[Rfam]
RNA sequence: UUCCGGUUGAUCCUGCCGGAGGCCAUUGCUAUCGGAGUCCGAUUUAGCCAUGCUAGUUGCACGAGUUUAGACUCGUAGCAUAUAGCUCAGUAACACGUGGCCAAACUACCCUACAGACCGCGAUAACCUCGGGAAACUGAGGCCAAUAGCGGAUAUAACUCUCAUGCUGGAGUGCCGAGAGUUAGAAACGUUCCGGCGCUGUAGGAUGUGGCUGCGGCCGAUUAGGUAGAUGGUGGGGUAACGGCCCACCAUGCCGAUAAUCGGUACAGGUUGUGAGAGCAAGAGCCUGGAGACGGUAUCUGAGACAAGAUACCGGGCCCUACGGGGCGCAGCAGGCGCGAAACCUUUACACUGCACGACAGUGCGAUAGGGGGACUCCGAGUGUGAGGGCAUAUAGCCCUCGCUUUUCUGCACCGUAAGGUGGUGCAAGAAUAAGGACUGGGCAAGACCGGUGCCAGCCGCCGCGGUAAUACCGGCAGUCCAAGUGAUGGCCGAUAUUAUUG
Number, nucleotide and partner (000 for none) at each position: 001u000002u000003c019004c018005g017006g016007u015008u000009g000010a000011u000012c000013c000014u000015g007016c006017c005018g004019g003020a000021g493022g492023c491024c490025a489026u488027u487028g486029c485030u484031a000032u381033c380034g379035g378036a377037g376038u375039c374040c373041g339042a000043u000044u000045u000046a000047g337048c336049c335050a000051u334052g333053c332054u000055a000056g079057u078058u077059g000060c000061a076062c075063g074064a073065g072066u071067u000068u000069a000070g000071a066072c065073u064074c063075g062076u061077a058078g057079c056080a000081u000082a000083u000084a000085g000086c292087u291088c290089a000090g000091u000092a000093a000094c000095a000096c216097g215098u214099g213100g212101c211102c210103a000104a000105a209106c208107u000108a000109c000110c205111c204112u203113a202114c201115a200116g199117a000118c152119c151120g150121c149122g000123a000124u000125a000126a000127c142128c141129u140130c139131g138132g137133g000134a000135a000136a000137c132138u131139g130140a129141g128142g127143c000144c000145a000146a000147u000148a000149g121150c120151g119152g118153a000154u000155a000156u000157a183158a182159c181160u180161c179162u178163c177164a000165u000166g175167c174168u000169g000170g000171a000172g000173u000174g167175c166176c000177g163178a162179g161180a160181g159182u158183u157184a000185g000186a000187a000188a000189c000190g197191u196192u000193c000194c000195g000196g191197c190198g000199c116200u115201g114202u113203a112204g111205g110206a000207u000208g106209u105210g102211g101212c100213u099214g098215c097216g096217g000218c264219c263220g262221a000222u000223u000224a000225g255226g254227u253228a000229g000230a252231u251232g250233g249234u248235g247236g246237g245238g000239u000240a000241a000242c000243g000244g000245c237246c236247c235248a234249c233250c232251a231252u230253g227254c226255c225256g000257a000258u000259a000260a000261u000262c220263g219264g218265u000266a000267c289268a288269g287270g286271u282272u281273g280274u279275g000276a000277g000278a000279g274280c273281a272282a271283g000284a000285g000286c270287c269288u268289g267290g088291a087292g086293a000294c315295g314296g313297u312298a311299u310300c000301u000302g000303a000304g000305a000306c000307a000308a000309g000310a299311u298312a297313c296314c295315g294316g000317g328318c327319c326320c325321u000322a000323c000324g000325g320326g319327g318328c317329g000330c000331a000332g053333c052334a051335g049336g048337c047338g000339c041340g000341a000342a000343a000344c000345c371346u000347u370348u369349a368350c000351a000352c000353u366354g365355c364356a363357c362358g000359a000360c000361a000362g357363u356364g355365c354366g353367a000368u349369a348370g347371g345372g000373g040374g039375a038376c037377u036378c035379c034380g033381a032382g000383u000384g404385u403386g402387a401388g400389g399390g398391c397392a000393u000394a000395u000396a000397g391398c390399c389400c388401u387402c386403g385404c384405u000406u000407u000408u000409c000410u428411g427412c426413a425414c424415c423416g000417u000418a000419a000420g000421g000422u000423g415424g414425u413426g412427c411428a410429a000430g000431a000432a000433u000434a000435a000436g482437g481438a480439c479440u478441g477442g000443g000444c000445a000446a000447g000448a000449c476450c475451g474452g473453u000454g000455c000456c000457a000458g465459c464460c000461g000462c000463c000464g459465c458466g000467g000468u000469a000470a000471u000472a000473c452474c451475g450476g449477c441478a440479g439480u438481c437482c436483a000484a030485g029486u028487g027488a026489u025490g024491g023492c022493c021494g000495a000496u000497a000498u000499u000500a000501u000502u000503g000